[Rfam]
RNA sequence: GACGAGUCGAUAAAGUACGCGAGAUGCGUGAUUUUUGAGAUAGAGGACAGCCGCCUUAACUGGCGAAACUCGGGAAGAGUUGCUGUUGGACAAGACUGAUGUGAACAGACACUAUCCACA
Numbered sequence: 001g002a003c004g005a006g007u008c009g010a011u012a013a014a015g016u017a018c019g020c021g022a023g024a025u026g027c028g029u030g031a032u033u034u035u036u037g038a039g040a041u042a043g044a045g046g047a048c049a050g051c052c053g054c055c056u057u058a059a060c061u062g063g064c065g066a067a068a069c070u071c072g073g074g075a076a077g078a079g080u081u082g083c084u085g086u087u088g089g090a091c092a093a094g095a096c097u098g099a100u101g102u103g104a105a106c107a108g109a110c111a112c113u114a115u116c117c118a119c120a
Base pairs, nucleotide, nucleotide: 006041007040008039009036010035012033013032017029018028019027020026046087047086048085049084050083051082052065053064054063055062067081068080069079070078071077088117089116090115094110096108097107
RNA: COG3610-DE RNA